The family of this 150-nucleotide RNA sequence from Phycicoccus avicenniae is "c-di-AMP riboswitch aptamer (ydaO/yuaA leader)".
RNA sequence: AGCACACGACCGCCGGGCAGGGGCGGGGGACCCACCAUCGGGGCCUUUCGAGGCUCCUCGGGGUGAAGCCGGACGACGGGACACCGUCUCCGGCCGGGCACGACCUCAGCCCGAACCCGACAGCUCACCCCGUAGGCGCCGAGAGGUUCA
Numbered sequence: 001a002g003c004a005c006a007c008g009a010c011c012g013c014c015g016g017g018c019a020g021g022g023g024c025g026g027g028g029g030a031c032c033c034a035c036c037a038u039c040g041g042g043g044c045c046u047u048u049c050g051a052g053g054c055u056c057c058u059c060g061g062g063g064u065g066a067a068g069c070c071g072g073a074c075g076a077c078g079g080g081a082c083a084c085c086g087u088c089u090c091c092g093g094c095c096g097g098g099c100a101c102g103a104c105c106u107c108a109g110c111c112c113g114a115a116c117c118c119g120a121c122a123g124c125u126c127a128c129c130c131c132g133u134a135g136g137c138g139c140c141g142a143g144a145g146g147u148u149c150a
Base pairs, nucleotide, nucleotide: 003022005020023133024132025131026130027129028128033060061118062117063116069093070092071091072090096112097111098110099109